[Rfam]
RNA sequence: AGUAAGGAUAGAGGUGCGAAAAUCAUUAGUACUUAUGUGGAGGAGAAUGGGCUCCAUGGAAGCAUAGGGAAAGGGAGAUUCGCCGAAGUAGAGGGAUGCUCAUCAUCCUGAAGCUGGGUCUGUUAUUGAAUAAAUGCAGAACUGUCAUAUAGGAGACUAUAUGGAGGGCUAUCAAGCGA
Numbered sequence: 001a002g003u004a005a006g007g008a009u010a011g012a013g014g015u016g017c018g019a020a021a022a023u024c025a026u027u028a029g030u031a032c033u034u035a036u037g038u039g040g041a042g043g044a045g046a047a048u049g050g051g052c053u054c055c056a057u058g059g060a061a062g063c064a065u066a067g068g069g070a071a072a073g074g075g076a077g078a079u080u081c082g083c084c085g086a087a088g089u090a091g092a093g094g095g096a097u098g099c100u101c102a103u104c105a106u107c108c109u110g111a112a113g114c115u116g117g118g119u120c121u122g123u124u125a126u127u128g129a130a131u132a133a134a135u136g137c138a139g140a141a142c143u144g145u146c147a148u149a150u151a152g153g154a155g156a157c158u159a160u161a162u163g164g165a166g167g168g169c170u171a172u173c174a175a176g177c178g179a
Stems, first nucleotide, its partner, number of pairs: 007173005016083005023076002032068007087115003093109006116143002119140004124136004145164007
Dot-bracket structure: ......(((((....(((((..((.......(((((((.......................)))))))......))..)))))...(((...((((((.....))))))...)))((.((((.((((.....)))))))).)).(((((((......)))))))....)))))......
RNA: Lysine riboswitch aptamer
Organism: Oceanobacillus piezotolerans